Rfam assigns this 539-nucleotide part of an RNA from Aplysia californica to the family "Eukaryotic large subunit ribosomal RNA".
[Rfam]
RNA sequence: UAGAACAAUGUAGGUAAGGGAAGUCGGCAAAUUGGAUCCGUAACUUCGGGAAAAGGAUUGGCUCUGAGGGCUGGGCCAGUCGGGCCGGGGUACGAAGCGGGACUGGGGUGGGCCCGGGCUGGGCGAGGCCGCCGCCGCCUUCGGGUGGCGGGCAGGCCGAGCUCGGAACGCGGUUGCAACCUUCCCGUGGACUGCCCCAGCUAUGCGGCCGUGGCUCCGCCGCGGUCCGCGUCGGCUGGCAUUCAACAGCCAACUCAGAACUGGUACGGACCAGGGGAAUCCGACUGUCUAAUUAAAACAAAGCAUUGCGACGGCCGUCACCCGGUGUUGACGCAAUGUGAUUUCUGCCCAGUGCUCUGAAUGUCAAAGUGAAGAAAUUCAACCAAGCGCGGGUAAACGGCGGGAGUAACUAUGACUCUCUUAAGGUAGCCAAAUGCCUCGUCAUCUAAUUAGUGACGCGCAUGAAUGGAUUAACGAGAUUCCCACUGUCCCUAUCUACUAUCUAGCGAAACCACAGCCAAGGGAACGGGCUUGGUAGA
Numbered sequence: 001u002a003g004a005a006c007a008a009u010g011u012a013g014g015u016a017a018g019g020g021a022a023g024u025c026g027g028c029a030a031a032u033u034g035g036a037u038c039c040g041u042a043a044c045u046u047c048g049g050g051a052a053a054a055g056g057a058u059u060g061g062c063u064c065u066g067a068g069g070g071c072u073g074g075g076c077c078a079g080u081c082g083g084g085c086c087g088g089g090g091u092a093c094g095a096a097g098c099g100g101g102a103c104u105g106g107g108g109u110g111g112g113c114c115c116g117g118g119c120u121g122g123g124c125g126a127g128g129c130c131g132c133c134g135c136c137g138c139c140u141u142c143g144g145g146u147g148g149c150g151g152g153c154a155g156g157c158c159g160a161g162c163u164c165g166g167a168a169c170g171c172g173g174u175u176g177c178a179a180c181c182u183u184c185c186c187g188u189g190g191a192c193u194g195c196c197c198c199a200g201c202u203a204u205g206c207g208g209c210c211g212u213g214g215c216u217c218c219g220c221c222g223c224g225g226u227c228c229g230c231g232u233c234g235g236c237u238g239g240c241a242u243u244c245a246a247c248a249g250c251c252a253a254c255u256c257a258g259a260a261c262u263g264g265u266a267c268g269g270a271c272c273a274g275g276g277g278a279a280u281c282c283g284a285c286u287g288u289c290u291a292a293u294u295a296a297a298a299c300a301a302a303g304c305a306u307u308g309c310g311a312c313g314g315c316c317g318u319c320a321c322c323c324g325g326u327g328u329u330g331a332c333g334c335a336a337u338g339u340g341a342u343u344u345c346u347g348c349c350c351a352g353u354g355c356u357c358u359g360a361a362u363g364u365c366a367a368a369g370u371g372a373a374g375a376a377a378u379u380c381a382a383c384c385a386a387g388c389g390c391g392g393g394u395a396a397a398c399g400g401c402g403g404g405a406g407u408a409a410c411u412a413u414g415a416c417u418c419u420c421u422u423a424a425g426g427u428a429g430c431c432a433a434a435u436g437c438c439u440c441g442u443c444a445u446c447u448a449a450u451u452a453g454u455g456a457c458g459c460g461c462a463u464g465a466a467u468g469g470a471u472u473a474a475c476g477a478g479a480u481u482c483c484c485a486c487u488g489u490c491c492c493u494a495u496c497u498a499c500u501a502u503c504u505a506g507c508g509a510a511a512c513c514a515c516a517g518c519c520a521a522g523g524g525a526a527c528g529g530g531c532u533u534g535g536u537a538g539a
Stems, first nucleotide, its partner, number of pairs: 001505004010499007018491003035059005044049001060262002063259006069251005075240009084215003089210003097206003101202001103200009113190002115187004121181002263267001275484007282476002286300003303339008314326004343470003347401003352398002354394004359390001362389003370381004402420006421425001441457005518535005
For this family Rfam cites "Crystal structure of the ribosome at 5.5 A resolution" (Yusupov et al., Science, 2001). Pairs were carried over by alignment from the consensus structure, which is taken from published work.